[Rfam]
RNA sequence: GGAUAUUUGAUAGGAGCAUUCCCUAGUACGAGAGGACCGGGAAUGAGUGACCUCUGGUGUUCCAGUUGUACCGCCAGGUGCAUUGCUGGGUAGCUAAGUCGCGAAAGGAUAAGCGCUGAAAGCAUCUAAGCGCCAAGCCCCCCUAAAGAUGAGAUAUCCCAGGAUUUAUCCUCUAAAGGCUACAGGAAGACUACCUGUUCGAUAGGCUGGAGAUGUAAGCAUAGCAAUAUGUUCAGUUGACCAGUACUAAUCAGCCGUGAG
Numbered sequence: 001g002g003a004u005a006u007u008u009g010a011u012a013g014g015a016g017c018a019u020u021c022c023c024u025a026g027u028a029c030g031a032g033a034g035g036a037c038c039g040g041g042a043a044u045g046a047g048u049g050a051c052c053u054c055u056g057g058u059g060u061u062c063c064a065g066u067u068g069u070a071c072c073g074c075c076a077g078g079u080g081c082a083u084u085g086c087u088g089g090g091u092a093g094c095u096a097a098g099u100c101g102c103g104a105a106a107g108g109a110u111a112a113g114c115g116c117u118g119a120a121a122g123c124a125u126c127u128a129a130g131c132g133c134c135a136a137g138c139c140c141c142c143c144u145a146a147a148g149a150u151g152a153g154a155u156a157u158c159c160c161a162g163g164a165u166u167u168a169u170c171c172u173c174u175a176a177a178g179g180c181u182a183c184a185g186g187a188a189g190a191c192u193a194c195c196u197g198u199u200c201g202a203u204a205g206g207c208u209g210g211a212g213a214u215g216u217a218a219g220c221a222u223a224g225c226a227a228u229a230u231g232u233u234c235a236g237u238u239g240a241c242c243a244g245u246a247c248u249a250a251u252c253a254g255c256c257g258u259g260a261g
Stems, first nucleotide, its partner, number of pairs: 001159008011145004017045007047102005055096003062089005067082006107139002113133005162173002175258001178256004182198005203249003206245005212238002219232005
A member of the RNA family "Bacterial large subunit ribosomal RNA" from Lentisphaera araneosa, 261 nucleotides of a longer RNA. Rfam's curators put it in the seed alignment.